[Rfam]
This 56-nucleotide RNA sequence belongs to the Rfam family "chrB-b RNA".

RNA sequence: CCGGGACAUCCGCAGGCUCCCGGACAAAGGCGGUGUCCAAGUCGCCCAAGCUCUGC
Numbered sequence: 001c002c003g004g005g006a007c008a009u010c011c012g013c014a015g016g017c018u019c020c021c022g023g024a025c026a027a028a029g030g031c032g033g034u035g036u037c038c039a040a041g042u043c044g045c046c047c048a049a050g051c052u053c054u055g056c
Stems, first nucleotide, its partner, number of pairs: 001023006012056005029046005